[Rfam]
RNA sequence: CUCCCCGAAAUGUUUUUAGGAACAGCCUUGGAUAUAGACGUGUUAUAGAGGUAGAGCUACUAAUUGGGCUAGGGGGCUUCACCGCCUACCAAACCCUAAUAAACUCCGAAUGCUAUAACAUAAUCUCCAGGAGUGAGGCUGUGGGCGCUAAGGUCCAUGGCCGAGAGGGAAAUAACCCAGACUAACAGCUAAGGUCCCUAAUCGUAUGUUAAGUUGAACAAACGCGGUUCAAAUCCUAAAACAGCCAGGAUGUUGGCUUGGAAGCAGCCAUUCAUUUAAAGAGUGCGUAACAGCUCACUGGUCGAGGGUUUGGGCACGGAAAAUAAUCGGGCAUCAAACAUACAACCGAAGCUUUAGGCCUAGCAGCAAUGCUAGACGGUAGGGGAGCAUUCUAAACUGCAUCGAAGGUGUGUUGUGAGACAUGCUGGAGCGUUUAGAAAAGAAAAU
Number, nucleotide and partner (000 for none) at each position: 001c387002u386003c385004c384005c383006c382007g000008a000009a000010a000011u024012g023013u022014u021015u020016u000017u000018a000019g000020g015021a014022a013023c012024a011025g000026c133027c131028u130029u129030g128031g127032a126033u000034a000035u000036a000037g000038a000039c000040g121041u120042g119043u118044u117045a116046u115047a114048g113049a000050g000051g000052u000053a000054g107055a105056g104057c000058u000059a000060c000061u101062a100063a000064u000065u000066g096067g095068g094069c000070u000071a000072g090073g089074g087075g086076g085077c084078u000079u000080c000081a000082c000083c000084g077085c076086c075087u074088a000089c073090c072091a000092a000093a000094c068095c067096c066097u000098a000099a000100u062101a061102a000103a000104c056105u055106c000107c054108g000109a000110a000111u000112g000113c048114u047115a046116u045117a044118a043119c042120a041121u040122a000123a000124u000125c000126u032127c031128c030129a029130g028131g027132a000133g026134u000135g000136a000137g162138g161139c160140u159141g158142u157143g156144g155145g154146c153147g000148c000149u000150a000151a000152g000153g146154u145155c144156c143157a142158u141159g140160g139161c138162c137163g000164a000165g000166a000167g178168g177169g176170a000171a000172a000173u000174a000175a000176c169177c168178c167179a000180g000181a000182c357183u356184a355185a354186c000187a353188g352189c351190u000191a000192a000193g347194g346195u345196c000197c000198c000199u000200a000201a000202u344203c000204g343205u342206a341207u340208g339209u338210u000211a000212a000213g000214u000215u000216g000217a000218a000219c000220a000221a000222a000223c318224g317225c000226g000227g315228u314229u313230c312231a311232a310233a309234u308235c307236c306237u000238a000239a000240a000241a000242c000243a000244g302245c301246c300247a299248g298249g000250a275251u274252g273253u000254u000255g269256g268257c267258u000259u000260g000261g000262a000263a000264g000265c000266a000267g257268c256269c255270a000271u000272u000273c252274a251275u250276u280277u000278a000279a000280a276281g296282a000283g000284u000285g294286c293287g000288u000289a000290a000291c000292a000293g286294c285295u000296c281297a000298c248299u247300g246301g245302u244303c000304g000305a000306g236307g235308g234309u233310u232311u231312g230313g229314g228315c227316a000317c224318g223319g000320a000321a000322a000323a000324u000325a000326a000327u000328c000329g000330g000331g000332c000333a000334u000335c000336a000337a000338a209339c208340a207341u206342a205343c204344a202345a195346c194347c193348g000349a000350a000351g189352c188353u187354u185355u184356a183357g182358g377359c000360c375361u374362a373363g372364c371365a370366g000367c000368a000369a000370u365371g364372c363373u362374a361375g360376a000377c358378g000379g000380u000381a000382g006383g005384g004385g003386a002387g001388c442389a000390u439391u438392c437393u436394a435395a434396a433397c000398u432399g431400c430401a000402u000403c000404g000405a000406a000407g426408g425409u424410g423411u422412g421413u420414u419415g000416u000417g000418a000419g414420a413421c412422a411423u410424g409425c408426u407427g000428g000429a000430g400431c399432g398433u396434u395435u394436a393437g392438a391439a390440a000441a000442g388443a000444a000445a000446a000447u000